[Rfam]
RNA sequence: AACAAUCAACAGGGGGGCCCGUAUUGCGGGCUGAGAUUUGAGGCUUCACCUCAUGACCCUCCGACCUGAUCUGGAUUAUGCCAGCGUAGGGAGUGACAUUAUUGUGAU
Numbered sequence: 001a002a003c004a005a006u007c008a009a010c011a012g013g014g015g016g017g018c019c020c021g022u023a024u025u026g027c028g029g030g031c032u033g034a035g036a037u038u039u040g041a042g043g044c045u046u047c048a049c050c051u052c053a054u055g056a057c058c059c060u061c062c063g064a065c066c067u068g069a070u071c072u073g074g075a076u077u078a079u080g081c082c083a084g085c086g087u088a089g090g091g092a093g094u095g096a097c098a099u100u101a102u103u104g105u106g107a108u
Base pairs, nucleotide, nucleotide: 006096007095008094010093011060012059013058014057016054017031018030019029020028021027039053040052041051042050043049065090066089067088068087071084072083073082074081
RNA: TPP riboswitch aptamer (THI element)